[Rfam]
RNA sequence: AACGUGCUCCGGGGUCGGUGUAAGUCCGAACCGGCGGUGAUAGUCCGCGACCCGUUCCUGCUUGCAGGAGCGGUUGACUCGGUGAAACUCCGAGACCGACGGUGAAAGUCCGGAUGGGAGGCAGCACGCG
Numbered sequence: 001a002a003c004g005u006g007c008u009c010c011g012g013g014g015u016c017g018g019u020g021u022a023a024g025u026c027c028g029a030a031c032c033g034g035c036g037g038u039g040a041u042a043g044u045c046c047g048c049g050a051c052c053c054g055u056u057c058c059u060g061c062u063u064g065c066a067g068g069a070g071c072g073g074u075u076g077a078c079u080c081g082g083u084g085a086a087a088c089u090c091c092g093a094g095a096c097c098g099a100c101g102g103u104g105a106a107a108g109u110c111c112g113g114a115u116g117g118g119a120g121g122c123a124g125c126a127c128g129c130g
Base pairs, nucleotide, nucleotide: 003128004127005126006125007124008123009121010120016028017027018026030109031108032098033097034048035047036046037045043096044095052073053072078094079093080092081091082090100112101111102110